[Rfam]
A member of the RNA family "Mammalian CPEB3 ribozyme" from Alligator sinensis, 76 nucleotides long.
RNA sequence: AGCCGAAAGUUUGAGGCCAUAGCAGAUGUGCUCACAGCACGGCCCUGCCAGAUUCAGUGCAUCUGUGAAUUCUGCU
Numbered sequence: 001a002g003c004c005g006a007a008a009g010u011u012u013g014a015g016g017c018c019a020u021a022g023c024a025g026a027u028g029u030g031c032u033c034a035c036a037g038c039a040c041g042g043c044c045c046u047g048c049c050a051g052a053u054u055c056a057g058u059g060c061a062u063c064u065g066u067g068a069a070u071u072c073u074g075c076u
Stems, first nucleotide, its partner, number of pairs: 013045001015044004021076006028040003049065005055059001
Taxonomically the source falls in Alligator (Eukaryota, Metazoa, Teleostomi, Alligatorinae). The match comes from Rfam's covariance-model search (52 bits).